[Rfam]
RNA sequence: UGAAAUUUCUUCAAUAUAGAACACUUAUGUCGAUAAAAUGACUUAAUUUCAUU
Numbered sequence: 001u002g003a004a005a006u007u008u009c010u011u012c013a014a015u016a017u018a019g020a021a022c023a024c025u026u027a028u029g030u031c032g033a034u035a036a037a038a039u040g041a042c043u044u045a046a047u048u049u050c051a052u053u
Stems, first nucleotide, its partner, number of pairs: 011033002014030004

A member of the RNA family "Plastid-atpF group II-D1 intron" from Cicer arietinum, 53 nucleotides long. From the family's description: Plastid atpF is a non-coding RNA (ncRNA) recognised in plastids. It has been reported in the intron group II-D1 region of ATP synthase (atpF) genes. Lineage of the source: Eukaryota > Viridiplantae > Gunneridae > Fabales > Cicer. For this family Rfam cites "Retrograde signaling in plants: A critical review focusing on the GUN pathway and beyond" (Richter et al., Plant Commun, 2023).